[Rfam]
This 89-nucleotide sequence from Ziziphus jujuba belongs to the Rfam family "Plastid-psbM 3UTR RNA". By type it is a cis-regulatory element. The match comes from Rfam's covariance-model search (67 bits). The family has 237 seed sequences and 627 matches in Rfam 15.1. About the family: Plastid psbM is a non-coding RNA (ncRNA) recognised in plastids. It was found in the three prime untranslated region (3UTR) of psbM gene, its 3UTR location suggests a role in transcript maturation. NCBI's taxonomy places the organism under Eukaryota, Mesangiospermae, Rosales, Rhamnaceae, Ziziphus jujuba.

RNA sequence: GAGACGAUAGUAUGGUAGAAAGAAAGGUUCAUAUUUUUCUUUCUACCAUAAUAUCUAGUAUUGCCAGUGUACUGUAUAAAGUUUAUUGU
Numbered sequence: 001g002a003g004a005c006g007a008u009a010g011u012a013u014g015g016u017a018g019a020a021a022g023a024a025a026g027g028u029u030c031a032u033a034u035u036u037u038u039c040u041u042u043c044u045a046c047c048a049u050a051a052u053a054u055c056u057a058g059u060a061u062u063g064c065c066a067g068u069g070u071a072c073u074g075u076a077u078a079a080a081g082u083u084u085a086u087u088g089u
Stems, first nucleotide, its partner, number of pairs: 006055004011050018